[Rfam]
RNA: Archaeal large subunit ribosomal RNA, nucleotides 910 to 1356
Organism: Methanocella paludicola
RNA sequence: CCUCCCGAAACAUAUCGAAGUAUGACCUCACCGGAGAUUGUGGGCGAGGUAGAGCACUGAUUAGGGGAGCCGGGCGGGAAACUGCUCGUCCCCUUGUCAAACUCCAAAGUCGCUCUCGUUGUAGAUGGUGGGAAGUCCGGGCUGGGGGGUAAGCUUCUAGUCCGUAAGGGAGACAACCCAGACCAGGGUUAAGGUCCUUAAUUGUCGACUAAGUGUAAACACUGAAAGGCGUCCCAAGCCCUAGACAACUGGGAGGUGAGCUUAGAAGCAGCUACCCUUUAAAAAUAGCGUAACAGCUUACCAGUCGAGGUUUGGGGCCCUGAAAAUGGACGGGGCUCAAGUCGACAACCGAGACCCUGGAACACCGCAAGGUGAUUUCGUAGGGAGGCAAUCCGCGGGCGUGGAAGCAGGGCUGUAAGGUCCUGUGGAGCGCGCGGGUAAGAAAAU
Dot-bracket structure: ((((((....(((((....))))).(((((((...(((.(.((((((....(((....(((.((((((...((((((....)))))).)))))).)))...)).)....)))))).))))......))))))..)...(((((((((.......)))))))))....(((......)))...(((((((...(((......(.((((((.................(((.((((((((((.......(((((.(((..(((.........)))..)))(...)(...((......)).).)))))...)))))))))))))...................))))))))))...)))))))((((((....))))..))....))))))(.(((((((.((......((((((((....))))))))...)).)))))))..).....
Numbered sequence: 001c002c003u004c005c006c007g008a009a010a011c012a013u014a015u016c017g018a019a020g021u022a023u024g025a026c027c028u029c030a031c032c033g034g035a036g037a038u039u040g041u042g043g044g045c046g047a048g049g050u051a052g053a054g055c056a057c058u059g060a061u062u063a064g065g066g067g068a069g070c071c072g073g074g075c076g077g078g079a080a081a082c083u084g085c086u087c088g089u090c091c092c093c094u095u096g097u098c099a100a101a102c103u104c105c106a107a108a109g110u111c112g113c114u115c116u117c118g119u120u121g122u123a124g125a126u127g128g129u130g131g132g133a134a135g136u137c138c139g140g141g142c143u144g145g146g147g148g149g150u151a152a153g154c155u156u157c158u159a160g161u162c163c164g165u166a167a168g169g170g171a172g173a174c175a176a177c178c179c180a181g182a183c184c185a186g187g188g189u190u191a192a193g194g195u196c197c198u199u200a201a202u203u204g205u206c207g208a209c210u211a212a213g214u215g216u217a218a219a220c221a222c223u224g225a226a227a228g229g230c231g232u233c234c235c236a237a238g239c240c241c242u243a244g245a246c247a248a249c250u251g252g253g254a255g256g257u258g259a260g261c262u263u264a265g266a267a268g269c270a271g272c273u274a275c276c277c278u279u280u281a282a283a284a285a286u287a288g289c290g291u292a293a294c295a296g297c298u299u300a301c302c303a304g305u306c307g308a309g310g311u312u313u314g315g316g317g318c319c320c321u322g323a324a325a326a327u328g329g330a331c332g333g334g335g336c337u338c339a340a341g342u343c344g345a346c347a348a349c350c351g352a353g354a355c356c357c358u359g360g361a362a363c364a365c366c367g368c369a370a371g372g373u374g375a376u377u378u379c380g381u382a383g384g385g386a387g388g389c390a391a392u393c394c395g396c397g398g399g400c401g402u403g404g405a406a407g408c409a410g411g412g413c414u415g416u417a418a419g420g421u422c423c424u425g426u427g428g429a430g431c432g433c434g435c436g437g438g439u440a441a442g443a444a445a446a447u
Stems, first nucleotide, its partner, number of pairs: 001388006011024005026135001027132006036120003040117001042115006052105001053103002059098003063094006072087006139163009168179003183360007193350003202347001204346006227321003231318010248305005254278003259273003279283001284299001288297002361378002363374004389442001391439007399431002407426008